[Rfam]
Rfam assigns this 58-nucleotide RNA from Parvibaculum sedimenti to the family "terC RNA". It scores 66 bits against the family's covariance model. Lineage of the source: Bacteria > Alphaproteobacteria > Hyphomicrobiales > Parvibaculaceae > Parvibaculum.
Nucleotides: 058
Stems, first nucleotide, its partner, number of pairs: 006052007022041008
Number, partner (000 for none) and nucleotide at each position: 001000g002000a003000g004000g005000a006052g007051g008050u009049c010048c011047g012046g013000g014000c015000c016000c017000c018000u019000c020000u021000g022041g023040c024039g025038g026037u027036g028035g029034a030000g031000g032000c033000g034029u035028c036027c037026a038025c039024c040023g041022c042000g043000a044000u045000g046012u047011c048010g049009g050008a051007c052006c053000u054000g055000a056000u057000c058000u